[Rfam]
RNA sequence: AUUAAAAACAUGAUCGAGUACAGCGCUGGUGAAAUCACCGCCCAUCAAAACAUCAAAAAAUGUGGGAAUUGGAGUUCAUCAACGCUGCACUCAAUGAUGUUUUUU
Numbered sequence: 001a002u003u004a005a006a007a008a009c010a011u012g013a014u015c016g017a018g019u020a021c022a023g024c025g026c027u028g029g030u031g032a033a034a035u036c037a038c039c040g041c042c043c044a045u046c047a048a049a050a051c052a053u054c055a056a057a058a059a060a061u062g063u064g065g066g067a068a069u070u071g072g073a074g075u076u077c078a079u080c081a082a083c084g085c086u087g088c089a090c091u092c093a094a095u096g097a098u099g100u101u102u103u104u105u
Base pairs, nucleotide, nucleotide: 006102007101008100009099010098011097013095014094016092017091018090019089021087022086023085024084025083027081028080030078031077032076